[Rfam]
RNA sequence: GUUUUUAAAGACACUACCAUGAGGAAAGUCCAUGCUAGCACUGGCUGUGAUGCCAGUAGUGUUUGUGCUAGGCGAAACCAUAAGCCUAGGGACGUCUUAGACGUUACGGCGGUCGAAAUGGCUAAGUCUUUUGAGAUAGGCUAAAAUAGACCUGAAAGUGCCACAGUGACGUAGUUUUCAUGGAAACAUGAAAAGUGGAACGCGGUAAACCCCUCAAGCUAGCAACCCAAAUUUCGGUCGGGGCACGGGAAAGCUGGAAACGAACAGACUUUCCUGACUGCAAUGAGCAGUAGACAGAUGAUUAUCGAAGGUGGUAGUACCUAGUACCACUGGAACAAAACAUGGCUUAUAGAA
Numbered sequence: 001g002u003u004u005u006u007a008a009a010g011a012c013a014c015u016a017c018c019a020u021g022a023g024g025a026a027a028g029u030c031c032a033u034g035c036u037a038g039c040a041c042u043g044g045c046u047g048u049g050a051u052g053c054c055a056g057u058a059g060u061g062u063u064u065g066u067g068c069u070a071g072g073c074g075a076a077a078c079c080a081u082a083a084g085c086c087u088a089g090g091g092a093c094g095u096c097u098u099a100g101a102c103g104u105u106a107c108g109g110c111g112g113u114c115g116a117a118a119u120g121g122c123u124a125a126g127u128c129u130u131u132u133g134a135g136a137u138a139g140g141c142u143a144a145a146a147u148a149g150a151c152c153u154g155a156a157a158g159u160g161c162c163a164c165a166g167u168g169a170c171g172u173a174g175u176u177u178u179c180a181u182g183g184a185a186a187c188a189u190g191a192a193a194a195g196u197g198g199a200a201c202g203c204g205g206u207a208a209a210c211c212c213c214u215c216a217a218g219c220u221a222g223c224a225a226c227c228c229a230a231a232u233u234u235c236g237g238u239c240g241g242g243g244c245a246c247g248g249g250a251a252a253g254c255u256g257g258a259a260a261c262g263a264a265c266a267g268a269c270u271u272u273c274c275u276g277a278c279u280g281c282a283a284u285g286a287g288c289a290g291u292a293g294a295c296a297g298a299u300g301a302u303u304a305u306c307g308a309a310g311g312u313g314g315u316a317g318u319a320c321c322u323a324g325u326a327c328c329a330c331u332g333g334a335a336c337a338a339a340a341c342a343u344g345g346c347u348u349a350u351a352g353a354a
Base pairs, nucleotide, nucleotide: 001017002016026348027347028346030345031344032343033342034341035222036221037220038219039218040057041056042055043054044053045052063217064216065215067213068089069088070087071086072085073084090107091105092104093103094102095101096100108212109211111152112151113150114149119143120142121141122140126137127136128135158210159209160206161205162204175194176193177192178191179190180189181188182187226242227241228240246276247275248274249273250272251271252270277291278290279289280288281287310331311330312329313328314327315326316325
Background:
The record is a 354-nucleotide sequence from Streptococcus minor, which matches "Bacterial RNase P class B" in Rfam. Lineage of the source: Bacteria > Bacillati > Bacillota > Bacilli > Streptococcus. Rfam describes the family as follows. Ribonuclease P (RNase P) is a ubiquitous endoribonuclease, found in archaea, bacteria and eukarya as well as chloroplasts and mitochondria. Its Rfam clan is "RNaseP clan". The family's RNA type in Rfam is ribozyme. A search with the family's covariance model found it, with a score of 312 bits. The base pairs follow the family's consensus structure, which is taken from published work.